[Rfam]
RNA sequence: AAUUUACCAUAGGGGUGCCGUUUUCAGCGGCUGAGAGCAUACCCUCAUAAACCUGAUCCGGAUAAUGCCGGCGAAGGGAAUGGAUAUCAAACCAUA
Numbered sequence: 001a002a003u004u005u006a007c008c009a010u011a012g013g014g015g016u017g018c019c020g021u022u023u024u025c026a027g028c029g030g031c032u033g034a035g036a037g038c039a040u041a042c043c044c045u046c047a048u049a050a051a052c053c054u055g056a057u058c059c060g061g062a063u064a065a066u067g068c069c070g071g072c073g074a075a076g077g078g079a080a081u082g083g084a085u086a087u088c089a090a091a092c093c094a095u096a
Stems, first nucleotide, its partner, number of pairs: 007083004011045004016039001017031005052077003058071004